[Rfam]
RNA sequence: UUGAAUGCGGGAGGAGAGACCAUGCCAUUGGCAUGGCGCCGAAGGAGCAAGCCAGUCACAGGUGAAUCUCUCAGGCAAAAGGAGGCCCGCUGGACG
Numbered sequence: 001u002u003g004a005a006u007g008c009g010g011g012a013g014g015a016g017a018g019a020c021c022a023u024g025c026c027a028u029u030g031g032c033a034u035g036g037c038g039c040c041g042a043a044g045g046a047g048c049a050a051g052c053c054a055g056u057c058a059c060a061g062g063u064g065a066a067u068c069u070c071u072c073a074g075g076c077a078a079a080a081g082g083a084g085g086c087c088c089g090c091u092g093g094a095c096g
Base pairs, nucleotide, nucleotide: 007090008089009088010087011086020036021035022034023033038076039075040074041072042071045070046069047068051063052062